[Rfam]
RNA sequence: GGAAGUACAGGCAAUGGUAUCUGCCUUGAACCGCCGCCCGGCCGGGUGCGCUGAUGAUACCUACAGGGCU
Numbered sequence: 001g002g003a004a005g006u007a008c009a010g011g012c013a014a015u016g017g018u019a020u021c022u023g024c025c026u027u028g029a030a031c032c033g034c035c036g037c038c039c040g041g042c043c044g045g046g047u048g049c050g051c052u053g054a055u056g057a058u059a060c061c062u063a064c065a066g067g068g069c070u
Stems, first nucleotide, its partner, number of pairs: 010025004016061006033051002

The family of this 70-nucleotide RNA sequence from Alistipes indistinctus is "Fluoride riboswitch aptamer (crcB RNA motif)". Pairs were carried over by alignment from the consensus structure, which is taken from published work. Gene Ontology terms of the family: positive regulation of gene expression and response to fluoride. The organism belongs to Alistipes indistinctus, within Bacteria.